Rfam assigns this 107-nucleotide sequence from Pectobacterium atrosepticum to the family "Yersinia sRNA 224". The literature on the family includes a 2015 paper in PLoS Genet by Nuss et al., "Transcriptomic profiling of Yersinia pseudotuberculosis reveals reprogramming of the Crp regulon by temperature and uncovers Crp as a master regulator of small RNAs". Its family is annotated with response to temperature stimulus in the Gene Ontology. NCBI's taxonomy places the organism under Bacteria, Gammaproteobacteria, Enterobacterales, Pectobacteriaceae, Pectobacterium atrosepticum. The pairing is the family consensus, mapped onto this sequence. The match comes from Rfam's covariance-model search (82 bits).
RNA sequence: GAUAUUGAUGACGCAGUAAGGCGGGCAGAGAACGUGGGUAGAUCGUAAAGACGCGGUGAAUACAUCCCUGUACGCUCGAGCCGCGCCAUCCCUGGCGCGGACGCUUU
Numbered sequence: 001g002a003u004a005u006u007g008a009u010g011a012c013g014c015a016g017u018a019a020g021g022c023g024g025g026c027a028g029a030g031a032a033c034g035u036g037g038g039u040a041g042a043u044c045g046u047a048a049a050g051a052c053g054c055g056g057u058g059a060a061u062a063c064a065u066c067c068c069u070g071u072a073c074g075c076u077c078g079a080g081c082c083g084c085g086c087c088a089u090c091c092c093u094g095g096c097g098c099g100g101a102c103g104c105u106u107u
Stems, first nucleotide, its partner, number of pairs: 013107001015105003020026001028077003041066003045063003051057002081100008